Shown here is a 93-nucleotide sequence from Clostridiales bacterium oral taxon 876, a member of the family "Selenocysteine transfer RNA". Gene Ontology term of the family: triplet codon-amino acid adaptor activity. The literature on the family includes a 2000 paper in FEBS Lett by Mizutani and Goto, "Eukaryotic selenocysteine tRNA has the 9/4 secondary structure". It scores 66 bits against the family's covariance model.

RNA sequence: GGGAGUAGAUAAGUGCUGGUGUGCUUGCCAGUCUUCAAAACUGUGUUGUGGCGCUAAUAACGUCAUGGGUAGGUUCGAUUCCUACAUACUCCC
Numbered sequence: 001g002g003g004a005g006u007a008g009a010u011a012a013g014u015g016c017u018g019g020u021g022u023g024c025u026u027g028c029c030a031g032u033c034u035u036c037a038a039a040a041c042u043g044u045g046u047u048g049u050g051g052c053g054c055u056a057a058u059a060a061c062g063u064c065a066u067g068g069g070u071a072g073g074u075u076c077g078a079u080u081c082c083u084a085c086a087u088a089c090u091c092c093c
Stems, first nucleotide, its partner, number of pairs: 001093007008085001011026006027046002029043004048066005070084004